[Rfam]
Shown here is a 132-nucleotide sequence from Streptomyces sp. NP160, a member of the family "ALIL pseudoknot". The base pairs follow the family's consensus structure, which is taken from published work.

RNA sequence: AGCGUUUUUCGCCGCGGCGGAGCUCGACCGCCGACUGAAGUGAUCGUCGCCUACAUCGACGCCCAUAAGGACCGCUUCGGGGUCGAGCCGAUCUGCACGGUGCUCAGCGCUGCUGGCACGCAGGUCGCCCCG
Number, nucleotide and partner (000 for none) at each position: 001a000002g000003c000004g000005u000006u000007u000008u000009u000010c000011g000012c000013c000014g000015c000016g032017g031018c030019g029020g028021a000022g000023c000024u000025c000026g000027a000028c020029c019030g018031c017032c016033g000034a000035c000036u000037g000038a000039a000040g000041u000042g000043a000044u000045c000046g000047u000048c000049g000050c000051c000052u000053a000054c000055a000056u000057c000058g000059a000060c000061g000062c000063c000064c000065a000066u000067a000068a000069g000070g000071a000072c000073c000074g000075c000076u000077u000078c132079g131080g130081g129082g128083u000084c000085g000086a000087g000088c000089c127090g126091a000092u124093c123094u122095g121096c120097a000098c000099g000100g000101u000102g000103c000104u000105c000106a000107g000108c000109g000110c000111u000112g000113c000114u000115g000116g000117c000118a000119c000120g096121c095122a094123g093124g092125u000126c090127g089128c082129c081130c080131c079132g078
It is annotated as a cis-regulatory element. Gene Ontology term of the family: positive regulation of translational frameshifting.